[Rfam]
Record summary
Rfam assigns this 78-nucleotide RNA sequence from Eumeta japonica to the family "mir-2796 microRNA precursor family".
RNA sequence: UGCGGUGGGCAGGGGUUUCUUUCGGCCUUCAGCUUUCAUCGUAGUCUGUAGGCCGGCGGAAACUACUUGCUUACUGCG
Numbered sequence: 001u002g003c004g005g006u007g008g009g010c011a012g013g014g015g016u017u018u019c020u021u022u023c024g025g026c027c028u029u030c031a032g033c034u035u036u037c038a039u040c041g042u043a044g045u046c047u048g049u050a051g052g053c054c055g056g057c058g059g060a061a062a063c064u065a066c067u068u069g070c071u072u073a074c075u076g077c078g
Stems, first nucleotide, its partner, number of pairs: 005074004010069004014064007022056007030048003

A search with the family's covariance model found it, with a score of 82 bits. Taxonomically the source falls in Eumeta (Eukaryota, Mandibulata, Aparaglossata, Psychidae).